rpsB sRNA: a 105-nucleotide RNA from Paremcibacter congregatus. The match comes from Rfam's covariance-model search (47 bits).
RNA sequence: CACACGCGGGAAUUAAGUUGACCUCCUACAUAUUGAGGAAAACUUUCCGGUGUCCCAUAAGGGGCCACACUCUCGCGGAGGAUUAACCGGAAAAAAAGGAAAAAU
Dot-bracket structure: (.(.(((((((...(((((.....................)))))......(((((....))))).....)))))))).).........................
Source information:
For this family Rfam cites "Identification of candidate structured RNAs in the marine organism 'Candidatus Pelagibacter ubique'" (Meyer et al., BMC Genomics, 2009).